[Rfam]
RNA sequence: ACCCCCUGGCAAUGAGCAAGGAGACACCUGAUUGGUGGUGUUGCUCUUAUAUCAAUCAGGGGCAAAUCAGACAUGCAGUCCUUUAUUCAUCCUAGCUUUAUGCCUCUGUUGGUAGCCAGAGCUGUUUCAUACCUGAGUCACAUUA
Numbered sequence: 001a002c003c004c005c006c007u008g009g010c011a012a013u014g015a016g017c018a019a020g021g022a023g024a025c026a027c028c029u030g031a032u033u034g035g036u037g038g039u040g041u042u043g044c045u046c047u048u049a050u051a052u053c054a055a056u057c058a059g060g061g062g063c064a065a066a067u068c069a070g071a072c073a074u075g076c077a078g079u080c081c082u083u084u085a086u087u088c089a090u091c092c093u094a095g096c097u098u099u100a101u102g103c104c105u106c107u108g109u110u111g112g113u114a115g116c117c118a119g120a121g122c123u124g125u126u127u128c129a130u131a132c133c134u135g136a137g138u139c140a141c142a143u144u145a
Base pairs, nucleotide, nucleotide: 003062004061005060006059007058008057013054014053015052019048020047021046023042024041025040026039027038028037083140085138086137087136088135101131105129110124111123113121
The family of this 145-nucleotide RNA from Myotis brandtii is "Small nucleolar RNA SNORA48". Rfam links the family to the GO terms nucleolus and RNA processing. A reference for the family is Ofengand and Bakin (1997), "Mapping to nucleotide resolution of pseudouridine residues in large subunit ribosomal RNAs from representative eukaryotes, prokaryotes, archaebacteria, mitochondria and chloroplasts", J Mol Biol. It scores 59 bits against the family's covariance model. The family's consensus secondary structure was predicted with RNAalifold.